[Rfam]
RNA sequence: AAGUACACUGAGUGGCCAGAUUAUUAUGCAUUUAGAUAUCAUAAUAAUCUGGCCACUUAGUGUGUAU
Numbered sequence: 001a002a003g004u005a006c007a008c009u010g011a012g013u014g015g016c017c018a019g020a021u022u023a024u025u026a027u028g029c030a031u032u033u034a035g036a037u038a039u040c041a042u043a044a045u046a047a048u049c050u051g052g053c054c055a056c057u058u059a060g061u062g063u064g065u066a067u
Stems, first nucleotide, its partner, number of pairs: 004064014019049010

A member of the RNA family "mir-9256 microRNA precursor family" from Pipistrellus kuhlii, 67 nucleotides long. Lineage of the source: Eukaryota > Eumetazoa > Chordata > Tetrapoda > Pipistrellus. The family has 8 seed sequences and 31,772 matches in Rfam 15.1. Rfam links the family to the GO terms miRNA-mediated post-transcriptional gene silencing and RISC complex.